This 449-nucleotide RNA sequence from Mosavirus acanmo belongs to the Rfam family "Aphthovirus internal ribosome entry site (IRES)". About the family: This family represents the internal ribosome entry site (IRES) of the the aphthoviruses. IRES elements allow cap and end-independent translation of mRNA in the host cell.
RNA sequence: GGGCAGGCCUCAUUGCCCUAAUUCUUUCUACCGAGUAUCUGCUAGGGUUUCUAGCGGCUUGAAUACUUGGAUUGAGGGAUACAAGAUACUACUGAUCGAUUGUCGAUUGGGAAACUUGUAGAUACUUCAAAGCUACCAGUAGCGUGGACUCACAGCCAGCGGACUACCCCUCAUGGUAACAUGAGCCUCUGGGCCCACAAGGCACGUCGCAAGACCUGUGAGACGGCAACCCCAGCCUAGCUUUGUUGAGGAAACAAGCGAUAACAUGACAUGAGAGACCGGAAGGAUUCUUGUAUUGUGAGCCGAAGGAUGGCCUCUAGGUACCUCAUUUUAUGAGAUCUGAGGAGGUGCUCUUGAGUUGGUGCUUUACACUGACAACACAGAGUUAAAAAGCGUCUAAGCUCACCCGGAAAUUGGGAAAUUUCCGUUAUUUCCAUUUUGUUUGCAAA
Dot-bracket structure: .(.....).................((((.....((((.(.((((.....)))).)......))))........).)))..(((((..(..(((.....((((..((.......((........((..((((((.(..(...))..(.(((((((((((.((........(((((....))))).)).))))(((.....)))..(((....)))))))))).)(((.......))).))))))....))......)).......))...)).).)...)))...)..)))))......(((.(........((((.(((((...(((.....))).)))))...)))).((((.(.((((...........))))..)..))))...............))))...(((((..(.....).)))))......................
Numbered sequence: 001g002g003g004c005a006g007g008c009c010u011c012a013u014u015g016c017c018c019u020a021a022u023u024c025u026u027u028c029u030a031c032c033g034a035g036u037a038u039c040u041g042c043u044a045g046g047g048u049u050u051c052u053a054g055c056g057g058c059u060u061g062a063a064u065a066c067u068u069g070g071a072u073u074g075a076g077g078g079a080u081a082c083a084a085g086a087u088a089c090u091a092c093u094g095a096u097c098g099a100u101u102g103u104c105g106a107u108u109g110g111g112a113a114a115c116u117u118g119u120a121g122a123u124a125c126u127u128c129a130a131a132g133c134u135a136c137c138a139g140u141a142g143c144g145u146g147g148a149c150u151c152a153c154a155g156c157c158a159g160c161g162g163a164c165u166a167c168c169c170c171u172c173a174u175g176g177u178a179a180c181a182u183g184a185g186c187c188u189c190u191g192g193g194c195c196c197a198c199a200a201g202g203c204a205c206g207u208c209g210c211a212a213g214a215c216c217u218g219u220g221a222g223a224c225g226g227c228a229a230c231c232c233c234a235g236c237c238u239a240g241c242u243u244u245g246u247u248g249a250g251g252a253a254a255c256a257a258g259c260g261a262u263a264a265c266a267u268g269a270c271a272u273g274a275g276a277g278a279c280c281g282g283a284a285g286g287a288u289u290c291u292u293g294u295a296u297u298g299u300g301a302g303c304c305g306a307a308g309g310a311u312g313g314c315c316u317c318u319a320g321g322u323a324c325c326u327c328a329u330u331u332u333a334u335g336a337g338a339u340c341u342g343a344g345g346a347g348g349u350g351c352u353c354u355u356g357a358g359u360u361g362g363u364g365c366u367u368u369a370c371a372c373u374g375a376c377a378a379c380a381c382a383g384a385g386u387u388a389a390a391a392a393g394c395g396u397c398u399a400a401g402c403u404c405a406c407c408c409g410g411a412a413a414u415u416g417g418g419a420a421a422u423u424u425c426c427g428u429u430a431u432u433u434c435c436a437u438u439u440u441g442u443u444u445g446c447a448a449a
Stems, first nucleotide, its partner, number of pairs: 002008001026079003029075001035066004040056001042054004082293005089286001092282003100276001101274001102272002106267002115258002125250002129244006136144001139143001147224001149222007156192004161187002171184005193203003206215003225237003300404003304401001313349004318342005326336003351385004356379001358376004408427005415421001